Vault RNA: a 97-nucleotide sequence from Amphiprion ocellaris. Rfam classes the family as a non-coding RNA gene. From the family's description: This family of RNAs are found as part of the enigmatic vault ribonucleoprotein complex.
RNA sequence: GCAUCGGUUUAGCUCAAUGGUUACUUCUAAACCUUGUCGUUUCUACUCUCUGGACCGCGGGCCGGGGGUUCAACCAUGGGCGCUGUCCGAUGUUUUU
Numbered sequence: 001g002c003a004u005c006g007g008u009u010u011a012g013c014u015c016a017a018u019g020g021u022u023a024c025u026u027c028u029a030a031a032c033c034u035u036g037u038c039g040u041u042u043c044u045a046c047u048c049u050c051u052g053g054a055c056c057g058c059g060g061g062c063c064g065g066g067g068g069u070u071c072a073a074c075c076a077u078g079g080g081c082g083c084u085g086u087c088c089g090a091u092g093u094u095u096u097u
Stems, first nucleotide, its partner, number of pairs: 002092006012081004017077004026073001029070001